RNA sequence: CAAGGGGAAGCCGAAAACCUGUAGAAAAGAGUAGGCC
Numbered sequence: 001c002a003a004g005g006g007g008a009a010g011c012c013g014a015a016a017a018c019c020u021g022u023a024g025a026a027a028a029g030a031g032u033a034g035g036c037c
Stems, first nucleotide, its partner, number of pairs: 003020003010036003

Notes: This 37-nucleotide sequence from Chitinophaga niabensis belongs to the Rfam family "DUF805b RNA". The base pairs follow the family's consensus structure, which is taken from published work.